[Rfam]
RNA sequence: CGGGGAAAGAAGACCCUGUUGAGCUUGACUCUAGUUUGACAUUGUGAAAAGACAUAGGAGGUGUAGAAUAGGAGGGAGCUUCGGCGCCGGUGAAAUACCUCUACUCCUAUUGUUUUUUUACUUACUCAGUGAAGCGGGGCUGGAUUCAUCGUCCAACUUCUGGUCUUAAGGUCCUUCGCGGGCCGACCCGGGUUGAGGACAUUGUCAGGUGGGGAGUUUGGCUGGGGCGGCACAUCUGUUAAACCAUAACGCAGGUGUCCUAAGGGGGGCUCAUGGAGAACAGAAAUCUCCAGUAGAACAAAAGGGUAAAAGUCCCCUUGAUUUUGAUUUUCAGUGUGAAUACAAACCAUGAAAGUGUGGCCUAUCGAUCCUUUAGUCCCUCGGAGUUUGAGGCUAGAGGUGCCAGAAAAGUUACCACAGGGAUAACUGGCUUGUGGCGGCCAAGCGUUCAUAGCGACGUCGCUUUUUGAUCCUUCGAUGUCGGCUCUUCCUAUCAUACCGAAGCAGAAUUCGGUAAGCGUUGGAUUGUUCACCCACUAAUAGGGAACGUGAGCUGGGUUUAGACCGUCGUGAGACAGGUUAGUUUUACCCUA
Numbered sequence: 001c002g003g004g005g006a007a008a009g010a011a012g013a014c015c016c017u018g019u020u021g022a023g024c025u026u027g028a029c030u031c032u033a034g035u036u037u038g039a040c041a042u043u044g045u046g047a048a049a050a051g052a053c054a055u056a057g058g059a060g061g062u063g064u065a066g067a068a069u070a071g072g073a074g075g076g077a078g079c080u081u082c083g084g085c086g087c088c089g090g091u092g093a094a095a096u097a098c099c100u101c102u103a104c105u106c107c108u109a110u111u112g113u114u115u116u117u118u119u120a121c122u123u124a125c126u127c128a129g130u131g132a133a134g135c136g137g138g139g140c141u142g143g144a145u146u147c148a149u150c151g152u153c154c155a156a157c158u159u160c161u162g163g164u165c166u167u168a169a170g171g172u173c174c175u176u177c178g179c180g181g182g183c184c185g186a187c188c189c190g191g192g193u194u195g196a197g198g199a200c201a202u203u204g205u206c207a208g209g210u211g212g213g214g215a216g217u218u219u220g221g222c223u224g225g226g227g228c229g230g231c232a233c234a235u236c237u238g239u240u241a242a243a244c245c246a247u248a249a250c251g252c253a254g255g256u257g258u259c260c261u262a263a264g265g266g267g268g269g270c271u272c273a274u275g276g277a278g279a280a281c282a283g284a285a286a287u288c289u290c291c292a293g294u295a296g297a298a299c300a301a302a303a304g305g306g307u308a309a310a311a312g313u314c315c316c317c318u319u320g321a322u323u324u325u326g327a328u329u330u331u332c333a334g335u336g337u338g339a340a341u342a343c344a345a346a347c348c349a350u351g352a353a354a355g356u357g358u359g360g361c362c363u364a365u366c367g368a369u370c371c372u373u374u375a376g377u378c379c380c381u382c383g384g385a386g387u388u389u390g391a392g393g394c395u396a397g398a399g400g401u402g403c404c405a406g407a408a409a410a411g412u413u414a415c416c417a418c419a420g421g422g423a424u425a426a427c428u429g430g431c432u433u434g435u436g437g438c439g440g441c442c443a444a445g446c447g448u449u450c451a452u453a454g455c456g457a458c459g460u461c462g463c464u465u466u467u468u469g470a471u472c473c474u475u476c477g478a479u480g481u482c483g484g485c486u487c488u489u490c491c492u493a494u495c496a497u498a499c500c501g502a503a504g505c506a507g508a509a510u511u512c513g514g515u516a517a518g519c520g521u522u523g524g525a526u527u528g529u530u531c532a533c534c535c536a537c538u539a540a541u542a543g544g545g546a547a548c549g550u551g552a553g554c555u556g557g558g559u560u561u562a563g564a565c566c567g568u569c570g571u572g573a574g575a576c577a578g579g580u581u582a583g584u585u586u587u588a589c590c591c592u593a
Stems, first nucleotide, its partner, number of pairs: 003592003007587002015421004020417002022413005028217004035209007044121010054110007071102005078085002125197005135190004143153002147151001170184005220233001221231003234256006259360002265317006271297002274292006298307002322346003327341004348357003371399006379393004430471001432469001434468001436464006445455002482557001483555004487549001488546005495520001498515006522536003526532001563581004567576003
Rfam assigns this 593-nucleotide part of an RNA from Brassica oleracea to the family "Eukaryotic large subunit ribosomal RNA". The organism belongs to Brassica oleracea, within Eukaryota. A search with the family's covariance model found it, with a score of 3301 bits.